[Rfam]
RNA: Small nucleolar RNA U2-19
RNA sequence: GAUCAGCGAUGAAAACAGCCAAAUCUGAGCAUCAGAACACCUUCCCGUCUACCUGAUGUAUGAUCUCUAUAGUUCUGAGA
Numbered sequence: 001g002a003u004c005a006g007c008g009a010u011g012a013a014a015a016c017a018g019c020c021a022a023a024u025c026u027g028a029g030c031a032u033c034a035g036a037a038c039a040c041c042u043u044c045c046c047g048u049c050u051a052c053c054u055g056a057u058g059u060a061u062g063a064u065c066u067c068u069a070u071a072g073u074u075c076u077g078a079g080a
Stems, first nucleotide, its partner, number of pairs: 029059005037050001039048002